[Rfam]
RNA sequence: CCCGGUGCUUCGCACCGGGCUUUAACAAUCCGUCCUUUCAGGACU
Numbered sequence: 001c002c003c004g005g006u007g008c009u010u011c012g013c014a015c016c017g018g019g020c021u022u023u024a025a026c027a028a029u030c031c032g033u034c035c036u037u038u039c040a041g042g043a044c045u
Base pairs, nucleotide, nucleotide: 001019002018003017004016005015006014007013008012032044033043034042035041036040
The family of this 45-nucleotide RNA sequence from Desulfonema ishimotonii is "Acido-Lenti-1 RNA". Pairs were carried over by alignment from the consensus structure, which is taken from published work. Lineage of the source: Bacteria > Thermodesulfobacteriota > Desulfobacterales > Desulfococcaceae > Desulfonema.